This 115-nucleotide sequence from Arabidopsis lyrata belongs to the Rfam family "MIR4221 microRNA precursor family".

RNA sequence: ACAGUUUUCCUGCUUUUGAAUUCUUGCACUAGCUUCCAUUGAUAGAUAAUGGUUACAUUUUGGUGCUGCAACUCUUGUGGUAGCUAGUACAAGAGUUCAAAAGUAGUGAAGAUGU
Numbered sequence: 001a002c003a004g005u006u007u008u009c010c011u012g013c014u015u016u017u018g019a020a021u022u023c024u025u026g027c028a029c030u031a032g033c034u035u036c037c038a039u040u041g042a043u044a045g046a047u048a049a050u051g052g053u054u055a056c057a058u059u060u061u062g063g064u065g066c067u068g069c070a071a072c073u074c075u076u077g078u079g080g081u082a083g084c085u086a087g088u089a090c091a092a093g094a095g096u097u098c099a100a101a102a103g104u105a106g107u108g109a110a111g112a113u114g115u
Stems, first nucleotide, its partner, number of pairs: 005111004010106017028088007036080004
NCBI's taxonomy places the organism under Eukaryota, Streptophytina, Embryophyta, rosids, Arabidopsis.
The sequence is in the family's curated seed alignment.